[Rfam]
mir-137 microRNA precursor family: a 72-nucleotide RNA from Acyrthosiphon pisum. Its Rfam clan is "mir-137 clan". The family's consensus secondary structure was predicted with RNAalifold. Its family is annotated with RISC complex and miRNA-mediated post-transcriptional gene silencing in the Gene Ontology.
RNA sequence: GUUGGCCCCGCGUAUUCUUGGGACAUAACACAUAUUUAAGACUGUUAUUGCUUGAGAAUACACGUAGUUGAC
Numbered sequence: 001g002u003u004g005g006c007c008c009c010g011c012g013u014a015u016u017c018u019u020g021g022g023a024c025a026u027a028a029c030a031c032a033u034a035u036u037u038a039a040g041a042c043u044g045u046u047a048u049u050g051c052u053u054g055a056g057a058a059u060a061c062a063c064g065u066a067g068u069u070g071a072c
Stems, first nucleotide, its partner, number of pairs: 001072005009064002012061011025048006